RNA sequence: GGGCCGUUAGCUCAGCCGGUAGAGCAGCGGACUUUUAAUCCGUUGGUCACUGGUUCGAAUCCAGUACGGCCCA
Numbered sequence: 001g002g003g004c005c006g007u008u009a010g011c012u013c014a015g016c017c018g019g020u021a022g023a024g025c026a027g028c029g030g031a032c033u034u035u036u037a038a039u040c041c042g043u044u045g046g047u048c049a050c051u052g053g054u055u056c057g058a059a060u061c062c063a064g065u066a067c068g069g070c071c072c073a
Stems, first nucleotide, its partner, number of pairs: 001072007010025004027043005049065005

About this RNA:
Shown here is a 73-nucleotide RNA sequence from Paraburkholderia steynii, a member of the family "tRNA". Transfer RNA (tRNA) molecules are approximately 80 nucleotides in length. The source organism's lineage runs through Bacteria, Pseudomonadota, Betaproteobacteria, Burkholderiaceae and Paraburkholderia.